[Rfam]
RNA sequence: AGACCUGGUGAUCUCUUCCAUACCUUAAAAGGUUAACACACAAAGGUCCAGUAAGUCUCCAUAAAACCCAGAGAAGAGAAUGGAGAACUCCUCUUUGGAGGCUGUCUGCAGUCAGAGCU
Numbered sequence: 001a002g003a004c005c006u007g008g009u010g011a012u013c014u015c016u017u018c019c020a021u022a023c024c025u026u027a028a029a030a031g032g033u034u035a036a037c038a039c040a041c042a043a044a045g046g047u048c049c050a051g052u053a054a055g056u057c058u059c060c061a062u063a064a065a066a067c068c069c070a071g072a073g074a075a076g077a078g079a080a081u082g083g084a085g086a087a088c089u090c091c092u093c094u095u096u097g098g099a100g101g102c103u104g105u106c107u108g109c110a111g112u113c114a115g116a117g118c119u
Stems, first nucleotide, its partner, number of pairs: 002048005010037001012035001015032001017029001055113001057111002060108002068098007076090003081086001
Background: Rfam assigns this 119-nucleotide RNA sequence from Orycteropus afer to the family "Small nucleolar RNA SNORA26". Taxonomically the source falls in Orycteropus afer (Eukaryota, Eumetazoa, Bilateria, Chordata). Clan: SNORA27 clan. Its family is annotated with nucleolus and RNA processing in the Gene Ontology. The snoRNA HBI-6 belong to the H/ACA family of snoRNAs, guiding the pseudouridylation of position U4522 if the 28S rRNA. HBI-6 is the human orthologue of mouse MBI-6 snoRNA. Pairs were carried over by alignment from the consensus structure, which was predicted with RNAalifold. The family's RNA type in Rfam is H/ACA-box small nucleolar RNA.